[Rfam]
The family of this 85-nucleotide RNA sequence from Ornithinibacillus halophilus is "c-di-GMP-I riboswitch aptamer". Rfam links the family to the GO term cyclic-di-GMP binding. Taxonomically the source falls in Ornithinibacillus (Bacteria, Bacillati, Bacillota, Bacillaceae).
RNA sequence: CCAAGUCAAGGGCAUACCCAUUGAAAGAUGGGGUCGCAAAGUCACAGGUCUAAAGCUUCAUUGCUAUGACGGCUGGAUUACCGAG
Dot-bracket structure: ...........((...((((((....))))))...))..((((.((((((....((......))...)))..)))))))......